[Rfam]
RNA sequence: CCAUGCCAGAUUCUGCGGCCGCCACGGUGGCCGCAGCCGUGCAUUUUAAUCUGGUCGCGCCCAUGGCCACAGGUCAUGCAAAGCCAGUACGGGAAACCGCGUCAAUAGGCGUAGGUCUUAUGGCAGCUUCCGCGCCGAUACAGAUAGGCAUUGACGCAGCGGCGUGUAGGCGCAACACACCC
Numbered sequence: 001c002c003a004u005g006c007c008a009g010a011u012u013c014u015g016c017g018g019c020c021g022c023c024a025c026g027g028u029g030g031c032c033g034c035a036g037c038c039g040u041g042c043a044u045u046u047u048a049a050u051c052u053g054g055u056c057g058c059g060c061c062c063a064u065g066g067c068c069a070c071a072g073g074u075c076a077u078g079c080a081a082a083g084c085c086a087g088u089a090c091g092g093g094a095a096a097c098c099g100c101g102u103c104a105a106u107a108g109g110c111g112u113a114g115g116u117c118u119u120a121u122g123g124c125a126g127c128u129u130c131c132g133c134g135c136c137g138a139u140a141c142a143g144a145u146a147g148g149c150a151u152u153g154a155c156g157c158a159g160c161g162g163c164g165u166g167u168a169g170g171c172g173c174a175a176c177a178c179a180c181c182c
Stems, first nucleotide, its partner, number of pairs: 004043003013036010055175001057173004061078001064076005083124004091119004097115002100111004127162002130159001132157003136153003141148001
RNA: RT-15 RNA